[Rfam]
RNA sequence: AACACCAGAAGAGGAGCGAUAGCCAGGUAACUAGCGUUAGGGUCACUGCCCGUUAUACGUUAAUGAGGGGGACUAUCGCCGAGGAUUUAGUUUGAGUGACAAACUAAAUUCGGUCAUUAGGGUUGAAUCCCUAAGGCUGUCACCAGUAACGAGGUAAUCGUUAAAUAGGUGGAGAGCUUCUGGCUGA
Numbered sequence: 001a002a003c004a005c006c007a008g009a010a011g012a013g014g015a016g017c018g019a020u021a022g023c024c025a026g027g028u029a030a031c032u033a034g035c036g037u038u039a040g041g042g043u044c045a046c047u048g049c050c051c052g053u054u055a056u057a058c059g060u061u062a063a064u065g066a067g068g069g070g071g072a073c074u075a076u077c078g079c080c081g082a083g084g085a086u087u088u089a090g091u092u093u094g095a096g097u098g099a100c101a102a103a104c105u106a107a108a109u110u111c112g113g114u115c116a117u118u119a120g121g122g123u124u125g126a127a128u129c130c131c132u133a134a135g136g137c138u139g140u141c142a143c144c145a146g147u148a149a150c151g152a153g154g155u156a157a158u159c160g161u162u163a164a165a166u167a168g169g170u171g172g173a174g175a176g177c178u179u180c181u182g183g184c185u186g187a
Stems, first nucleotide, its partner, number of pairs: 006182006016079007024071001030064001032062006083111012112138004117134006140172005146166001
Shown here is a 187-nucleotide sequence from Thalassotalea euphylliae, a member of the family "Lysine riboswitch aptamer".
The base pairs follow the family's consensus structure, which is taken from published work.